SL2 RNA: a 109-nucleotide RNA sequence from Oesophagostomum dentatum. About the family: This family represents SL2 RNA. SL2 RNA is involved in trans splicing in lower eukaryotes. Trans-splicing is a form of RNA processing. The acquisition of a spliced leader from a SL RNA is a intra-molecular reaction which precisely joins exons derived from separately transcribed RNAs. Approximately 25% of C. elegans genes are organised into polycistronic transcription units and the presence of SL2 on an mRNA is an indication the the gene is in an operon. It scores 57 bits against the family's covariance model. Its Rfam clan is "SL clan".
RNA sequence: GGUUUUAACCUAGUAUCACAAGGUACUAAGGAAUUCUGACCUACACCAAGGUGUUGCGUCAAAAACCUCAGUUUUUGGAUUGCCUUCCUAGGGUAUCCGGGAGGGCAGA
Numbered sequence: 001g002g003u004u005u006u007a008a009c010c011u012a013g014u015a016u017c018a019c020a021a022g023g024u025a026c027u028a029a030g031g032a033a034u035u036c037u038g039a040c041c042u043a044c045a046c047c048a049a050g051g052u053g054u055u056g057c058g059u060c061a062a063a064a065a066c067c068u069c070a071g072u073u074u075u076u077g078g079a080u081u082g083c084c085u086u087c088c089u090a091g092g093g094u095a096u097c098c099g100g101g102a103g104g105g106c107a108g109a
Stems, first nucleotide, its partner, number of pairs: 007035002009031002013027001017023001037061004041056001043054003086105004092098002